[Rfam]
RNA sequence: UGGGCUGGCCGGGCGACCGCGUUCCGCCACACGGCAACGUGCGGUGGGCCGAGGAAGGUCCGGGCUCCACAGGGCAGGGUGAUGGUUAACGGCCAUCCGGGGCAACCCGCGGGACAGUGCCACAGAAAACAGACCGCCACUCGGUGCUUCGGCGACGAGCGGUAAGGGUGAAACGGUGGGGUAAGAGCCCACCAGUGCACCGGGCGACCGGUGCAGCUAGGUAAACCCCACCCGGAGCAAGAUCAGACAGUGUGCGUUCGAGGGCGGCCCGCCCGAGUGCACGGGUAGAUCGCUGGAGGGAGUCGGCAACGGCUCUCGUAGAUGGAUGGUCGCCUCGCCCCGGCUCCGGCCGGUGCGGACAGAACCCGGCCUACAGGCCAGCCCAUUCG
Numbered sequence: 001u002g003g004g005c006u007g008g009c010c011g012g013g014c015g016a017c018c019g020c021g022u023u024c025c026g027c028c029a030c031a032c033g034g035c036a037a038c039g040u041g042c043g044g045u046g047g048g049c050c051g052a053g054g055a056a057g058g059u060c061c062g063g064g065c066u067c068c069a070c071a072g073g074g075c076a077g078g079g080u081g082a083u084g085g086u087u088a089a090c091g092g093c094c095a096u097c098c099g100g101g102g103c104a105a106c107c108c109g110c111g112g113g114a115c116a117g118u119g120c121c122a123c124a125g126a127a128a129a130c131a132g133a134c135c136g137c138c139a140c141u142c143g144g145u146g147c148u149u150c151g152g153c154g155a156c157g158a159g160c161g162g163u164a165a166g167g168g169u170g171a172a173a174c175g176g177u178g179g180g181g182u183a184a185g186a187g188c189c190c191a192c193c194a195g196u197g198c199a200c201c202g203g204g205c206g207a208c209c210g211g212u213g214c215a216g217c218u219a220g221g222u223a224a225a226c227c228c229c230a231c232c233c234g235g236a237g238c239a240a241g242a243u244c245a246g247a248c249a250g251u252g253u254g255c256g257u258u259c260g261a262g263g264g265c266g267g268c269c270c271g272c273c274c275g276a277g278u279g280c281a282c283g284g285g286u287a288g289a290u291c292g293c294u295g296g297a298g299g300g301a302g303u304c305g306g307c308a309a310c311g312g313c314u315c316u317c318g319u320a321g322a323u324g325g326a327u328g329g330u331c332g333c334c335u336c337g338c339c340c341c342g343g344c345u346c347c348g349g350c351c352g353g354u355g356c357g358g359a360c361a362g363a364a365c366c367c368g369g370c371c372u373a374c375a376g377g378c379c380a381g382c383c384c385a386u387u388c389g
Stems, first nucleotide, its partner, number of pairs: 001385010011374001012334007020051002023048006056372003060369005065237004072270004077233005082096005097111001098109004112228002117226002119222003134167002136163003140159004175193006195217001196215008241291004250282006262274004298317008

Background
This 389-nucleotide RNA sequence from Nocardioides sp. CF8 belongs to the Rfam family "Bacterial RNase P class A". Ribonuclease P (RNase P) is a ubiquitous endoribonuclease, found in archaea, bacteria and eukarya as well as chloroplasts and mitochondria. Its best characterised activity is the generation of mature 5'-ends of tRNAs by cleaving the 5'-leader elements of precursor-tRNAs. Cellular RNase Ps are ribonucleoproteins. The family's RNA type in Rfam is ribozyme.